[Rfam]
RNA sequence: GUUGCUUCACGACUGGAAGGAUGGCCUGAUAAUAAUUGUUUGGUUAUCCUGUAGAGGGAAGCAUAGAUUGCUUUUUAACCAGAAUUAAACAGCAUGGCGCUUUAUUUCACCGCGUCAAUGUUACCUGUCUCCUGGUACAUUU
Numbered sequence: 001g002u003u004g005c006u007u008c009a010c011g012a013c014u015g016g017a018a019g020g021a022u023g024g025c026c027u028g029a030u031a032a033u034a035a036u037u038g039u040u041u042g043g044u045u046a047u048c049c050u051g052u053a054g055a056g057g058g059a060a061g062c063a064u065a066g067a068u069u070g071c072u073u074u075u076u077a078a079c080c081a082g083a084a085u086u087a088a089a090c091a092g093c094a095u096g097g098c099g100c101u102u103u104a105u106u107u108c109a110c111c112g113c114g115u116c117a118a119u120g121u122u123a124c125c126u127g128u129c130u131c132c133u134g135g136u137a138c139a140u141u142u
Stems, first nucleotide, its partner, number of pairs: 003063006017052001019050002022046005078136005084130001091122003095117005
Dot-bracket structure: ..((((((........(.((.(((((...............)))))..)).).....))))))..............(((((.(......(((.(((((.............)))))..))).......).)))))......
small nucleolar RNA snoR137: a 142-nucleotide sequence from Leersia perrieri.